[Rfam]
The record is a 52-nucleotide RNA sequence from Citrobacter freundii, which matches "algC RNA" in Rfam.
RNA sequence: CAUUAAAAGGCUCAUUAAGAGUCAGGGCCUCCUGUUGCCUGAAGAAGGGUAA
Numbered sequence: 001c002a003u004u005a006a007a008a009g010g011c012u013c014a015u016u017a018a019g020a021g022u023c024a025g026g027g028c029c030u031c032c033u034g035u036u037g038c039c040u041g042a043a044g045a046a047g048g049g050u051a052a
Base pairs, nucleotide, nucleotide: 009023010022011021012020013019

It is annotated as a cis-regulatory element. Lineage of the source: Bacteria > Pseudomonadota > Gammaproteobacteria > Citrobacter > Citrobacter freundii.